About this RNA:
Shown here is a 79-nucleotide RNA from Myotis brandtii, a member of the family "mir-9198 microRNA precursor family".

RNA sequence: GCCACCGCUUGCACCUGCUGCUGGCGCCCAGUGCCGGCCCCCAUCACUUGGUGCCGUCAGCGGGUGCGAGCAGUGGCUG
Number, nucleotide and partner (000 for none) at each position: 001g000002c000003c000004a074005c073006c000007g071008c070009u069010u068011g067012c066013a065014c064015c063016u062017g061018c060019u059020g058021c000022u056023g055024g054025c053026g052027c051028c050029c000030a000031g000032u000033g000034c000035c000036g000037g000038c000039c000040c000041c000042c000043a000044u000045c000046a000047c000048u000049u000050g028051g027052u026053g025054c024055c023056g022057u000058c020059a019060g018061c017062g016063g015064g014065u013066g012067c011068g010069a009070g008071c007072a000073g005074u004075g000076g000077c000078u000079g000

Overview:
A search with the family's covariance model found it, with a score of 93 bits.